Description:
The record is a 164-nucleotide RNA from Paenibacillus lemnae, which matches "FMN riboswitch aptamer (RFN element)" in Rfam. Rfam links the family to the GO term FMN binding. A search with the family's covariance model found it, with a score of 111 bits. Taxonomically the source falls in Paenibacillus (Bacteria, Bacillati, Bacillota, Bacilli).
RNA sequence: AUGGAUCUUCGGGGUAAGGUGAAAUUCCUGACCGGCGGUGAUGGUGUGCGAAUCAUAUUCUGCAUGCUUCAGCCCGCGACUCGCUCUUGCGGUUAUUUACGUGAGGCGACUGACCUGGUGCAAUUCCAGGGCCGACGGUAUAGUCCGGAUGGGAGAAGAUCAAU
Number, nucleotide and partner (000 for none) at each position: 001a000002u000003g000004g161005a160006u159007c158008u157009u156010c155011g000012g000013g000014g000015u000016a000017a029018g028019g027020u000021g000022a000023a000024a000025u000026u000027c019028c018029u017030g000031a144032c143033c134034g133035g077036c076037g075038g074039u000040g000041a000042u000043g000044g000045u000046g000047u000048g000049c000050g000051a000052a000053u000054c000055a000056u000057a000058u000059u000060c000061u000062g000063c000064a000065u000066g000067c000068u000069u000070c000071a000072g132073c131074c038075c037076g036077c035078g000079a000080c000081u109082c108083g107084c106085u105086c000087u000088u000089g000090c000091g000092g000093u000094u000095a000096u000097u000098u000099a000100c000101g000102u000103g000104a000105g085106g084107c083108g082109a081110c000111u000112g000113a000114c130115c129116u128117g127118g126119u000120g000121c000122a000123a000124u000125u000126c118127c117128a116129g115130g114131g073132c072133c034134g033135a000136c147137g146138g145139u000140a000141u000142a000143g032144u031145c138146c137147g136148g000149a000150u000151g000152g000153g000154a000155g010156a009157a008158g007159a006160u005161c004162a000163a000164u000